[Rfam]
RNA sequence: GUCAGUCCCGUUUUGUGCCGUGGUCAUCCACGGUAAGUGGUGCCAUAGGCACCCGCCACGGCAGUUCUCCCGAGAGGGAGAACAAGCGGGACAGGAGGA
Numbered sequence: 001g002u003c004a005g006u007c008c009c010g011u012u013u014u015g016u017g018c019c020g021u022g023g024u025c026a027u028c029c030a031c032g033g034u035a036a037g038u039g040g041u042g043c044c045a046u047a048g049g050c051a052c053c054c055g056c057c058a059c060g061g062c063a064g065u066u067c068u069c070c071c072g073a074g075a076g077g078g079a080g081a082a083c084a085a086g087c088g089g090g091a092c093a094g095g096a097g098g099a
Stems, first nucleotide, its partner, number of pairs: 005092009016063009037054001039053005065082001067080004
DUF1874 RNA: a 99-nucleotide sequence.
The family's consensus secondary structure is taken from published work.
The family's RNA type in Rfam is cis-regulatory element.